[Rfam]
RNA sequence: CUGUCACAAGACAGAGUGAUCGGGUCAAGAUUUUCGCAUCAGACCGAGGGAAGUCCCCGGGCCCAGUACUACAGAGAUGUAGUCUCGGAAACGUGCGAGCUUUGUGAGCUGAAAUACUUUUGUCCACUACGAAAGGCUGAAACCAGUGUUGGAACCCGAUGGACUUCCAGCCCAAGGCAUCAUGGCCUACUGAACAGUUAUUCACUUGGGUCCAAUGUUAGUUUUGGACUAACAGAACGGGGCUUGUGAUCUUGUGACU
Numbered sequence: 001c002u003g004u005c006a007c008a009a010g011a012c013a014g015a016g017u018g019a020u021c022g023g024g025u026c027a028a029g030a031u032u033u034u035c036g037c038a039u040c041a042g043a044c045c046g047a048g049g050g051a052a053g054u055c056c057c058c059g060g061g062c063c064c065a066g067u068a069c070u071a072c073a074g075a076g077a078u079g080u081a082g083u084c085u086c087g088g089a090a091a092c093g094u095g096c097g098a099g100c101u102u103u104g105u106g107a108g109c110u111g112a113a114a115u116a117c118u119u120u121u122g123u124c125c126a127c128u129a130c131g132a133a134a135g136g137c138u139g140a141a142a143c144c145a146g147u148g149u150u151g152g153a154a155c156c157c158g159a160u161g162g163a164c165u166u167c168c169a170g171c172c173c174a175a176g177g178c179a180u181c182a183u184g185g186c187c188u189a190c191u192g193a194a195c196a197g198u199u200a201u202u203c204a205c206u207u208g209g210g211u212c213c214a215a216u217g218u219u220a221g222u223u224u225u226g227g228a229c230u231a232a233c234a235g236a237a238c239g240g241g242g243c244u245u246g247u248g249a250u251c252u253u254g255u256g257a258c259u
Stems, first nucleotide, its partner, number of pairs: 003258009014207006022045002051245003055242004070081004084095001086093002099178003105174002108171004113166002123163004149153001210229006

This 259-nucleotide RNA from Ziziphus jujuba belongs to the Rfam family "RNase MRP". The organism belongs to Ziziphus jujuba, within Eukaryota. About the family: RNase MRP is an enzymatically active ribonucleoprotein with two distinct roles in eukaryotes. It is annotated as a ribozyme.